[Rfam]
RNA: Flavo-1 RNA
Nucleotides: 079
Base pairs, nucleotide, nucleotide: 009071010070011069013067014066018062019061023057024056025055028053029052030051031050032049033048034047035046
Number, partner (000 for none) and nucleotide at each position: 001000u002000c003000u004000u005000a006000g007000c008000c009071a010070c011069g012000a013067u014066g015000g016000c017000a018062g019061c020000g021000g022000c023057a024056u025055c026000c027000u028053c029052c030051g031050c032049g033048c034047c035046g036000c037000c038000c039000g040000c041000u042000u043000u044000u045000g046035c047034g048033g049032c050031g051030c052029g053028g054000a055025g056024a057023u058000a059000c060000a061019g062018c063000g064000a065000a066014c067013a068000g069011c070010g071009u072000g073000a074000u075000a076000a077000a078000g079000c